The family of this 55-nucleotide RNA from bacterium NHP-B is "Plastid-psbl-rps4 3UTR RNA". Rfam 15.1 lists 1,631 matches to the family in 422 species. A reference for the family is Zhelyazkova et al. (2012), "Protein-mediated protection as the predominant mechanism for defining processed mRNA termini in land plant chloroplasts", Nucleic Acids Res. Pairs were carried over by alignment from the consensus structure, which was predicted with LocARNA. Plastid psbl-rps4-psbC is a non-coding RNA (ncRNA) present in plastids. It is compose of two short stem-loops in tandem in the terminal 3 prime untranslate region (3UTR) mostly in psbl and rps4 seed plants genes. A search with the family's covariance model found it, with a score of 69 bits. Rfam classes the family as a cis-regulatory element.
[Rfam]
RNA sequence: CGGAGAGAGAGGGAUUCGAACCCUCGAUACGGAGAAAAUCCGUAUAACGGUUUAG
Numbered sequence: 001c002g003g004a005g006a007g008a009g010a011g012g013g014a015u016u017c018g019a020a021c022c023c024u025c026g027a028u029a030c031g032g033a034g035a036a037a038a039u040c041c042g043u044a045u046a047a048c049g050g051u052u053u054a055g
Stems, first nucleotide, its partner, number of pairs: 009025005027045006